[Rfam]
RNA sequence: UUCUAUAUGAUGAAGUAUUUUUCGGAUGUAAAUGAGUCAAAGACUCGAGUUUCCGAGAGCGCAAAACCGUGUGGAUGCUUCCGUUGCCUUCCUUCUGAUCCCUAGC
Numbered sequence: 001u002u003c004u005a006u007a008u009g010a011u012g013a014a015g016u017a018u019u020u021u022u023c024g025g026a027u028g029u030a031a032a033u034g035a036g037u038c039a040a041a042g043a044c045u046c047g048a049g050u051u052u053c054c055g056a057g058a059g060c061g062c063a064a065a066a067c068c069g070u071g072u073g074g075a076u077g078c079u080u081c082c083g084u085u086g087c088c089u090u091c092c093u094u095c096u097g098a099u100c101c102c103u104a105g106c
Stems, first nucleotide, its partner, number of pairs: 001104001023083004

Shown here is a 106-nucleotide RNA from Athelia sp. TMB, a member of the family "Small nucleolar RNA Z13/snr52". Pairs were carried over by alignment from the consensus structure, which was predicted with PFOLD. The family has 42 seed sequences and 1,203 matches in Rfam 15.1. Rfam classes the family as a C/D-box small nucleolar RNA.